[Rfam]
The family of this 74-nucleotide RNA from Myotis brandtii is "mir-9193 microRNA precursor family". Pairs were carried over by alignment from the consensus structure, which was predicted with RNAalifold. Taxonomically the source falls in Myotis (Eukaryota, Opisthokonta, Chordata, Amniota). Its family is annotated with RISC complex and miRNA-mediated post-transcriptional gene silencing in the Gene Ontology.

RNA sequence: UGGGGGGUGGAGGGGUCCCUCAGCCCGGAAUGCGAGAGGGUGCAGGCCAGGCUGAGGGACCCCACUGGUGCAUG
Number, nucleotide and partner (000 for none) at each position: 001u000002g000003g000004g071005g000006g069007g000008u067009g066010g065011a000012g063013g062014g061015g060016u059017c058018c057019c056020u055021c054022a053023g052024c051025c050026c000027g048028g047029a000030a000031u044032g043033c042034g041035a000036g000037a000038g000039g000040g000041u034042g033043c032044a031045g000046g000047c028048c027049a000050g025051g024052c023053u022054g021055a020056g019057g018058g017059a016060c015061c014062c013063c012064a000065c010066u009067g008068g000069u006070g000071c004072a000073u000074g000
It scores 76 bits against the family's covariance model.